[Rfam]
RNA sequence: CCCAAGCCCGUGCUCUUUCCACUGAGCCAUUCUCUAAUCCCUUAGUACGGUGCUCUGCACAUAGUAAGCGCUCAAUAAACACCAUUGAUUGAAUCAAGAGAAGCAGCGUGGCUCAGUGGAAAGAGCACGGGCUUUGGA
Numbered sequence: 001c002c003c004a005a006g007c008c009c010g011u012g013c014u015c016u017u018u019c020c021a022c023u024g025a026g027c028c029a030u031u032c033u034c035u036a037a038u039c040c041c042u043u044a045g046u047a048c049g050g051u052g053c054u055c056u057g058c059a060c061a062u063a064g065u066a067a068g069c070g071c072u073c074a075a076u077a078a079a080c081a082c083c084a085u086u087g088a089u090u091g092a093a094u095c096a097a098g099a100g101a102a103g104c105a106g107c108g109u110g111g112c113u114c115a116g117u118g119g120a121a122a123g124a125g126c127a128c129g130g131g132c133u134u135u136g137g138a
Stems, first nucleotide, its partner, number of pairs: 002137002005133006012126019
A member of the RNA family "mir-130 microRNA precursor family" from Ornithorhynchus anatinus, 138 nucleotides long.
Lineage of the source: Eukaryota > Opisthokonta > Teleostomi > Monotremata > Ornithorhynchus.
It scores 42 bits against the family's covariance model.
Gene Ontology terms of the family: RISC complex and miRNA-mediated post-transcriptional gene silencing.